[Rfam]
RNA sequence: CUCUCCGAAAUAGCUUUAGGGCUAGCCUCGGAGGAUGGAUAAUGGAGGUAGAGCACUGUUUGGACUAGGGGCCCGUCAAGGGUUACUGAAUUCAGAUAAACUCCGAAUGCCAUUUAUCUUACUCCGGGAGUCAGACAGUGAGCGAUAAGGUCCAUUGUCGAAAGGGGAACAGCCCAGAUCACCAGUUAAGGUCCCUAAAUUUAUGCUAAGUGGAAAAGGAUGUGGCGUUGCACAGACAACUAGGAUGUUGGCUCAGAAGCAGCCACCAUUUAAAGAGUGCGUAAUAGCUCACUAGUCGAGUGACCCUGCGCCGAAAAUAUACCGGGGCUAAGCAUAAUACCGAAACUGUGGGUGCCAACUUAGUUGGCGCGGUAGGAGAGCGUUCUAAGUGUGUUGAAGGUCGACCGUGAGGACGGCUGGAACGCUUAGAAGUGAGAAU
Numbered sequence: 001c002u003c004u005c006c007g008a009a010a011u012a013g014c015u016u017u018a019g020g021g022c023u024a025g026c027c028u029c030g031g032a033g034g035a036u037g038g039a040u041a042a043u044g045g046a047g048g049u050a051g052a053g054c055a056c057u058g059u060u061u062g063g064a065c066u067a068g069g070g071g072c073c074c075g076u077c078a079a080g081g082g083u084u085a086c087u088g089a090a091u092u093c094a095g096a097u098a099a100a101c102u103c104c105g106a107a108u109g110c111c112a113u114u115u116a117u118c119u120u121a122c123u124c125c126g127g128g129a130g131u132c133a134g135a136c137a138g139u140g141a142g143c144g145a146u147a148a149g150g151u152c153c154a155u156u157g158u159c160g161a162a163a164g165g166g167g168a169a170c171a172g173c174c175c176a177g178a179u180c181a182c183c184a185g186u187u188a189a190g191g192u193c194c195c196u197a198a199a200u201u202u203a204u205g206c207u208a209a210g211u212g213g214a215a216a217a218g219g220a221u222g223u224g225g226c227g228u229u230g231c232a233c234a235g236a237c238a239a240c241u242a243g244g245a246u247g248u249u250g251g252c253u254c255a256g257a258a259g260c261a262g263c264c265a266c267c268a269u270u271u272a273a274a275g276a277g278u279g280c281g282u283a284a285u286a287g288c289u290c291a292c293u294a295g296u297c298g299a300g301u302g303a304c305c306c307u308g309c310g311c312c313g314a315a316a317a318u319a320u321a322c323c324g325g326g327g328c329u330a331a332g333c334a335u336a337a338u339a340c341c342g343a344a345a346c347u348g349u350g351g352g353u354g355c356c357a358a359c360u361u362a363g364u365u366g367g368c369g370c371g372g373u374a375g376g377a378g379a380g381c382g383u384u385c386u387a388a389g390u391g392u393g394u395u396g397a398a399g400g401u402c403g404a405c406c407g408u409g410a411g412g413a414c415g416g417c418u419g420g421a422a423c424g425c426u427u428a429g430a431a432g433u434g435a436g437a438a439u
Stems, first nucleotide, its partner, number of pairs: 001380006011024005026130001027128007036121001037118002041114005051104001052102002057098003061094004068087002070084005134159007142151002164175003179351004184347003190341003199338001201337006218312002222309004227304005239296005245269003250264003270274001275290001279288002352370008381434001383431010399418005405412002
Dot-bracket structure: ((((((....(((((....))))).((((((((..(((..(((((.....(((...(((.((((...(((((((.....))))).))...)))).)))..)).).....)))))..))..)))))))).)...(((((((.((......)).)))))))....(((......)))...((((.(((...(((......(.((((((...........((..((((.(((((.......(((((.(((..(((.........)))..)))(...)(...((......)).).)))))...))))).)))).))...................))))))))))...)))))))((((((((...))))))))....))))))(.((((((((((......(((((.((....)).)))))...))))))))))..).....
Bacterial large subunit ribosomal RNA: a 439-nucleotide part of an RNA from Lacticaseibacillus brantae. The match comes from Rfam's covariance-model search (2951 bits). The base pairs follow the family's consensus structure, which is taken from published work.